RNA sequence: GUGGGCGGAAGCUCAUUGUAGAGGUCACAUGCUGAGUGCUCGUCACUCCACCAAUCACCUCGGGGAAGGUCUGAGACAGGAGCCAAUCGCUGCCCUUGCAGGGCAUCACCUGAUGCGGGUGAGCGAGUGCACAGAAACGGUGGUCCAUGGAGGGCAGUUCUCACAGGAGAAGCCAGGGGGCGCAGUUUGAGCCUCCCUGGUGGAUGUGAAGCUCUCCGGCUUGGAAUCACUCGCGGCUGGCAAAUGAGUGCGAUGUAUGAGGUGGAGCACAGCUCCAGAACCCAAUUCAGACUACUCUCCGCCCAC
Number, nucleotide and partner (000 for none) at each position: 001g306002u305003g304004g303005g000006c000007g300008g299009a298010a000011g000012c261013u260014c259015a258016u257017u000018g000019u000020a000021g061022a060023g059024g058025u000026c000027a000028c000029a000030u000031g000032c000033u000034g048035a047036g046037u045038g044039c000040u000041c000042g000043u000044c038045a037046c036047u035048c034049c000050a000051c000052c000053a000054a000055u000056c000057a000058c024059c023060u022061c021062g000063g000064g000065g000066a000067a000068g000069g000070u000071c290072u289073g288074a287075g286076a000077c000078a000079g000080g000081a238082g237083c236084c235085a000086a000087u000088c000089g000090c000091u105092g104093c103094c102095c101096u000097u000098g000099c000100a000101g095102g094103g093104c092105a091106u122107c121108a120109c119110c118111u117112g000113a000114u000115g000116c000117g111118g110119g109120u108121g107122a106123g234124c233125g232126a231127g230128u229129g228130c000131a000132c000133a000134g000135a000136a000137a000138c000139g000140g000141u000142g000143g220144u219145c218146c000147a000148u000149g000150g000151a000152g000153g000154g000155c000156a000157g000158u000159u000160c000161u000162c000163a000164c000165a000166g000167g000168a000169g000170a000171a000172g000173c000174c000175a000176g000177g000178g000179g000180g000181c000182g000183c000184a000185g000186u000187u000188u000189g000190a000191g000192c000193c000194u000195c000196c000197c000198u000199g000200g000201u000202g000203g000204a000205u000206g000207u000208g000209a000210a000211g000212c000213u000214c000215u000216c000217c000218g145219g144220c143221u000222u000223g000224g000225a000226a000227u000228c129229a128230c127231u126232c125233g124234c123235g084236g083237c082238u081239g000240g000241c000242a000243a000244a000245u000246g000247a000248g000249u000250g000251c000252g000253a000254u000255g000256u000257a016258u015259g014260a013261g012262g000263u277264g276265g275266a274267g273268c272269a000270c000271a000272g268273c267274u266275c265276c264277a263278g000279a000280a000281c000282c000283c000284a000285a000286u075287u074288c073289a072290g071291a000292c000293u000294a000295c000296u000297c000298u009299c008300c007301g000302c000303c004304c003305a002306c001
RNA: Nuclear RNase P
Organism: Salarias fasciatus